[Rfam]
RNA sequence: UCUAGAACUCGAGAUAUGAGCUGAAAACCGAAUAGUGUCUGAGCUGUAGAACAUAUUUUGACUUCUCCGUUGAUGCUAAGAUUUGAACUUGAAAACGGCAAAAUUGAGUCUUGAACUCCGCCUGAAAGUUUUAGGUCUAUGUCUUAGCUUUCCAUA
Numbered sequence: 001u002c003u004a005g006a007a008c009u010c011g012a013g014a015u016a017u018g019a020g021c022u023g024a025a026a027a028c029c030g031a032a033u034a035g036u037g038u039c040u041g042a043g044c045u046g047u048a049g050a051a052c053a054u055a056u057u058u059u060g061a062c063u064u065c066u067c068c069g070u071u072g073a074u075g076c077u078a079a080g081a082u083u084u085g086a087a088c089u090u091g092a093a094a095a096c097g098g099c100a101a102a103a104u105u106g107a108g109u110c111u112u113g114a115a116c117u118c119c120g121c122c123u124g125a126a127a128g129u130u131u132u133a134g135g136u137c138u139a140u141g142u143c144u145u146a147g148c149u150u151u152c153c154a155u156a
Stems, first nucleotide, its partner, number of pairs: 003154001005152003008147002011145008020136001021134005027129002035123001037121001041119001043117001045115001048112002051109002055104006062098002072088001074086001
Rfam assigns this 156-nucleotide RNA from Populus deltoides to the family "MIR2912 microRNA precursor family". The source organism's lineage runs through Eukaryota, Spermatophyta, Magnoliopsida, Malpighiales and Populus.